[Rfam]
RNA: mir-276 microRNA precursor family
RNA sequence: AACGGUGAUUGCCACUAGCGAGGUAUAGAGUUCCUACGUGUUAUGAUAUAGUAGGAACUUCAUACCGUGCUCUUGGGUUCGCUGAG
Number, nucleotide and partner (000 for none) at each position: 001a000002a000003c000004g000005g000006u000007g000008a000009u000010u000011g000012c076013c075014a074015c000016u000017a071018g070019c069020g068021a000022g066023g065024u064025a063026u062027a000028g060029a059030g058031u057032u056033c055034c054035u053036a052037c051038g000039u000040g000041u000042u000043a000044u000045g000046a000047u000048a000049u000050a000051g037052u036053a035054g034055g033056a032057a031058c030059u029060u028061c000062a026063u025064a024065c023066c022067g000068u020069g019070c018071u017072c000073u000074u014075g013076g012077g000078u000079u000080c000081g000082c000083u000084g000085a000086g000